This 139-nucleotide RNA sequence from Orycteropus afer belongs to the Rfam family "Small Cajal body specific RNA 11". The family's RNA type in Rfam is small Cajal body RNA. The literature on the family includes a 2002 paper in EMBO J by Darzacq et al., "Cajal body-specific small nuclear RNAs: a novel class of 2'-O-methylation and pseudouridylation guide RNAs". The match comes from Rfam's covariance-model search (127 bits). The base pairs follow the family's consensus structure, which was predicted with RNAalifold. Rfam describes the family as follows. scaRNAs are a specific class of small nuclear RNAs which localise to the Cajal bodies and guide the modification of RNA polymerase II transcribed spliceosomal RNAs U1, U2, U4, U5 and U12. ACA57 belongs to the H/ACA box class of guide RNAs as it has the predicted hairpin-hinge-hairpin-tail structure, conserved H/ACA-box motifs and is found associated with GAR1. ACA57 is predicted to guide the pseudouridylation of the U5 spliceosomal RNA at position U43.

RNA sequence: UUGUCCUGGCCUCUGCUUUCCCUGGUGCCCUGUGCUCGGCACCAAUGGGGUCUGUGGCAGGACGCACAGCAGUCUCCCUCUCAAUUUAGGAGGGCCAUCCUAAGUGUAGGGCUGGCUCUUAAAGGCACGAGAGGACAAU
Numbered sequence: 001u002u003g004u005c006c007u008g009g010c011c012u013c014u015g016c017u018u019u020c021c022c023u024g025g026u027g028c029c030c031u032g033u034g035c036u037c038g039g040c041a042c043c044a045a046u047g048g049g050g051u052c053u054g055u056g057g058c059a060g061g062a063c064g065c066a067c068a069g070c071a072g073u074c075u076c077c078c079u080c081u082c083a084a085u086u087u088a089g090g091a092g093g094g095c096c097a098u099c100c101u102a103a104g105u106g107u108a109g110g111g112c113u114g115g116c117u118c119u120u121a122a123a124g125g126c127a128c129g130a131g132a133g134g135a136c137a138a139u
Stems, first nucleotide, its partner, number of pairs: 002064007010057002024053002028050006077134006085125003090120007098111005